[Rfam]
RNA sequence: CUUCUCAUCGCAUCCUCGCGACUAAUGACAAUCUUUAUCCCGCGGAAUAAAGCCUCUCAUUAGCCGCGCGAACCUCAGCAAUGGAAGAAUCUACUUAGCGUCCACCGCGGCGCAGGCGAAACUAUCCCCCGCCCCGCGGUGGACGCUGCCUAGAAGAAAGGGGCCACAUAAGGCCCCUUUCU
Numbered sequence: 001c002u003u004c005u006c007a008u009c010g011c012a013u014c015c016u017c018g019c020g021a022c023u024a025a026u027g028a029c030a031a032u033c034u035u036u037a038u039c040c041c042g043c044g045g046a047a048u049a050a051a052g053c054c055u056c057u058c059a060u061u062a063g064c065c066g067c068g069c070g071a072a073c074c075u076c077a078g079c080a081a082u083g084g085a086a087g088a089a090u091c092u093a094c095u096u097a098g099c100g101u102c103c104a105c106c107g108c109g110g111c112g113c114a115g116g117c118g119a120a121a122c123u124a125u126c127c128c129c130c131g132c133c134c135c136g137c138g139g140u141g142g143a144c145g146c147u148g149c150c151u152a153g154a155a156g157a158a159a160g161g162g163g164c165c166a167c168a169u170a171a172g173g174c175c176c177c178u179u180u181c182u
Stems, first nucleotide, its partner, number of pairs: 001087004006083002010079002017070004022063007093140002160177006

About this RNA:
The record is a 182-nucleotide RNA from Sodalis sp. TME1, which matches "SraG RNA" in Rfam. Rfam describes the family as follows. This RNA was discovered in E. coli during a large scale screen. Evidence was found for specific cleavage of this RNA. For this family Rfam cites "The small RNA SraG participates in PNPase homeostasis" (Fontaine et al., RNA, 2016). The match comes from Rfam's covariance-model search (111 bits). It is annotated as a small RNA.